[Rfam]
RNA sequence: AUUCACAUUGUGAGCGCAUUCACGGAUAAUACCGCCCCGGUCUGCACACCGGGAAUCCAGGAGAGUUCAUGUAC
Number, nucleotide and partner (000 for none) at each position: 001a000002u000003u000004c000005a000006c000007a000008u000009u000010g000011u000012g000013a000014g000015c000016g000017c000018a000019u000020u000021c000022a000023c000024g000025g000026a000027u000028a000029a000030u000031a000032c000033c000034g000035c000036c053037c052038c051039g050040g049041u048042c000043u000044g000045c000046a000047c000048a041049c040050c039051g038052g037053g036054a000055a000056u000057c000058c000059a000060g000061g000062a000063g000064a000065g000066u000067u000068c000069a000070u000071g000072u000073a000074c000

PyrD leader: a 74-nucleotide RNA sequence from Atlantibacter hermannii.
For this family Rfam cites "Conformational heterogeneity in the Salmonella typhimurium pyrC and pyrD leader mRNAs produced in vivo" (Sorensen, Nucleic Acids Res, 1994).
The organism belongs to Atlantibacter hermannii, within Bacteria.
Its family is annotated with regulation of gene expression in the Gene Ontology.
It scores 83 bits against the family's covariance model.